[Rfam]
Rfam assigns this 358-nucleotide RNA sequence from Candidatus Tokpelaia hoelldobleri to the family "Alphaproteobacteria transfer-messenger RNA". Gene Ontology term of the family: RNA catabolic process.

RNA sequence: CCCUUUGCAUUUUGCCGGAAAAACGGGUAUAAUGGUUGCGCCGGAGCAAUCCGGCUAUGGUGAUAAACGGGCUGUGAAAUAAACCGAUUGGACCCGGGGGCGGUACCCGGCGCCUCCACCACAGGGCAUUUGCAAAGCUGCUCUGUGGCGGGGGCGAAACAGGAUCGACAAAGGCGUAAAGACUGAUCUUUCACCCGGCAUUGUACCACCGUUAUCGGGCUGACUUGGUAGUUGCAAAUGACAACUAUGCGGAGGCUCGUCUCGCUGCCUAAUGGCGGUGCGACAGCUUCAACUUAAGUCUUGUUCCGUCGCAGGAACAAGCGGGGUUCGGAGGCACCUGGCAACAGAAGCCUUCACU
Numbered sequence: 001c002c003c004u005u006u007g008c009a010u011u012u013u014g015c016c017g018g019a020a021a022a023a024c025g026g027g028u029a030u031a032a033u034g035g036u037u038g039c040g041c042c043g044g045a046g047c048a049a050u051c052c053g054g055c056u057a058u059g060g061u062g063a064u065a066a067a068c069g070g071g072c073u074g075u076g077a078a079a080u081a082a083a084c085c086g087a088u089u090g091g092a093c094c095c096g097g098g099g100g101c102g103g104u105a106c107c108c109g110g111c112g113c114c115u116c117c118a119c120c121a122c123a124g125g126g127c128a129u130u131u132g133c134a135a136a137g138c139u140g141c142u143c144u145g146u147g148g149c150g151g152g153g154g155c156g157a158a159a160c161a162g163g164a165u166c167g168a169c170a171a172a173g174g175c176g177u178a179a180a181g182a183c184u185g186a187u188c189u190u191u192c193a194c195c196c197g198g199c200a201u202u203g204u205a206c207c208a209c210c211g212u213u214a215u216c217g218g219g220c221u222g223a224c225u226u227g228g229u230a231g232u233u234g235c236a237a238a239u240g241a242c243a244a245c246u247a248u249g250c251g252g253a254g255g256c257u258c259g260u261c262u263c264g265c266u267g268c269c270u271a272a273u274g275g276c277g278g279u280g281c282g283a284c285a286g287c288u289u290c291a292a293c294u295u296a297a298g299u300c301u302u303g304u305u306c307c308g309u310c311g312c313a314g315g316a317a318c319a320a321g322c323g324g325g326g327u328u329c330g331g332a333g334g335c336a337c338c339u340g341g342c343a344a345c346a347g348a349a350g351c352c353u354u355c356a357c358u
Stems, first nucleotide, its partner, number of pairs: 040055005059195005069188002072185001074183002084174002088171003094110005111156007196211003201222001203220001206218002324339004330355006
Rfam classes the family as a non-coding RNA gene. A search with the family's covariance model found it, with a score of 290 bits.